The family of this 76-nucleotide sequence from Mitsuokella sp. oral taxon 131 is "ZMP/ZTP riboswitch aptamer (pfl RNA motif)". The match comes from Rfam's covariance-model search (58 bits). The family's consensus secondary structure is taken from published work.

[Rfam]
RNA sequence: CGUAAGCUGUGCGACUGACGGAAGUGGAGCACCACGGGGAGCACAGGGAAGAGAGCCGACCGUCUGGGCAUCGUCU
Numbered sequence: 001c002g003u004a005a006g007c008u009g010u011g012c013g014a015c016u017g018a019c020g021g022a023a024g025u026g027g028a029g030c031a032c033c034a035c036g037g038g039g040a041g042c043a044c045a046g047g048g049a050a051g052a053g054a055g056c057c058g059a060c061c062g063u064c065u066g067g068g069c070a071u072c073g074u075c076u
Base pairs, nucleotide, nucleotide: 003050007046008045009044010043011042012041015038016037017064018063019062020061021060024035025034026033027032053071055069056068057067